[Rfam]
RNA sequence: AUUGCAAGUGAUGAUAAAAUAGACAGGGACAUCAGCACUUCUUAAUGGAGAAUGUUGACUAUAGUCUUUGGGAAUCUCUCUGAUGCAUA
Number, nucleotide and partner (000 for none) at each position: 001a000002u000003u087004g086005c085006a084007a000008g000009u000010g000011a000012u000013g000014a000015u000016a000017a000018a000019a000020u000021a000022g000023a000024c000025a000026g000027g000028g000029a000030c000031a000032u000033c000034a000035g000036c000037a000038c000039u000040u000041c000042u000043u000044a000045a000046u000047g000048g000049a000050g000051a000052a000053u000054g000055u000056u000057g000058a000059c000060u000061a000062u000063a000064g000065u000066c000067u000068u000069u000070g000071g000072g000073a000074a000075u000076c000077u000078c000079u000080c000081u000082g000083a000084u006085g005086c004087a003088u000089a000